[Rfam]
RNA sequence: UCUUCCGAAGUUUCCCUCAGGAUAGCUGGUGCUAGUAAUCGAGUUUCAUCCGGUAAAGCGAAUGAUUAGAAGUAUUGGGAACGAAACGUUCUCAACUUAUUCUCAAACUUUAAAUGGGUGAGAAGCGGGACUUGCUUAAUUGAAGCCUCGCAACGAAUCGUAGUGCCAAGUGGGCCAUUUUUGGUAAGCAGAACUGGCGCUGUGGGAUGAACCGAACGCUGAGUUAAAGUGCCAAAGUGGGCGCUCAUCAGAUCCCAUGAAAGGUGUUGGUUGCUUAAGACAGCAGGACGGUGGCCAUGGAAGUCGGAACCCGCUAAGGAGUGUGUAACAACUCACCUGCCGAAGCAACUAGCCCUGAAAAUGGAUGGCGCUAAAGCGCCCCACUUAUACUCAGCCGUUGGGGCAGAGCAGACCCUCGAGGUCCUGACGCCCCAACGAGUAGGAAGGUCGCGUGGGUGGCGCCGAAGGCUUUUGGGUGUGAACCUGGCUGGAGCCGCCCACGGUGCAGAU
Numbered sequence: 001u002c003u004u005c006c007g008a009a010g011u012u013u014c015c016c017u018c019a020g021g022a023u024a025g026c027u028g029g030u031g032c033u034a035g036u037a038a039u040c041g042a043g044u045u046u047c048a049u050c051c052g053g054u055a056a057a058g059c060g061a062a063u064g065a066u067u068a069g070a071a072g073u074a075u076u077g078g079g080a081a082c083g084a085a086a087c088g089u090u091c092u093c094a095a096c097u098u099a100u101u102c103u104c105a106a107a108c109u110u111u112a113a114a115u116g117g118g119u120g121a122g123a124a125g126c127g128g129g130a131c132u133u134g135c136u137u138a139a140u141u142g143a144a145g146c147c148u149c150g151c152a153a154c155g156a157a158u159c160g161u162a163g164u165g166c167c168a169a170g171u172g173g174g175c176c177a178u179u180u181u182u183g184g185u186a187a188g189c190a191g192a193a194c195u196g197g198c199g200c201u202g203u204g205g206g207a208u209g210a211a212c213c214g215a216a217c218g219c220u221g222a223g224u225u226a227a228a229g230u231g232c233c234a235a236a237g238u239g240g241g242c243g244c245u246c247a248u249c250a251g252a253u254c255c256c257a258u259g260a261a262a263g264g265u266g267u268u269g270g271u272u273g274c275u276u277a278a279g280a281c282a283g284c285a286g287g288a289c290g291g292u293g294g295c296c297a298u299g300g301a302a303g304u305c306g307g308a309a310c311c312c313g314c315u316a317a318g319g320a321g322u323g324u325g326u327a328a329c330a331a332c333u334c335a336c337c338u339g340c341c342g343a344a345g346c347a348a349c350u351a352g353c354c355c356u357g358a359a360a361a362u363g364g365a366u367g368g369c370g371c372u373a374a375a376g377c378g379c380c381c382c383a384c385u386u387a388u389a390c391u392c393a394g395c396c397g398u399u400g401g402g403g404c405a406g407a408g409c410a411g412a413c414c415c416u417c418g419a420g421g422u423c424c425u426g427a428c429g430c431c432c433c434a435a436c437g438a439g440u441a442g443g444a445a446g447g448u449c450g451c452g453u454g455g456g457u458g459g460c461g462c463c464g465a466a467g468g469c470u471u472u473u474g475g476g477u478g479u480g481a482a483c484c485u486g487g488c489u490g491g492a493g494c495c496g497c498c499c500a501c502g503g504u505g506c507a508g509a510u
Stems, first nucleotide, its partner, number of pairs: 001447006011024001013022003027168007044123008056111001057109002063105003068100001070098003075095006082088001125151005131145003174198004179193005203214003218395005224389001228385003237382001239381001242378003262356003266353010283340005289313003295307002314318001319334001323332002396437009449505001451502010467489002475484003
The family of this 510-nucleotide part of an RNA from Paracyclopina nana is "Eukaryotic large subunit ribosomal RNA". On this family, see Yusupov et al., Science 2001: "Crystal structure of the ribosome at 5.5 A resolution". Gene Ontology terms of the family: structural constituent of ribosome and ribosome. The source organism's lineage runs through Eukaryota, Protostomia, Pancrustacea, Copepoda and Paracyclopina.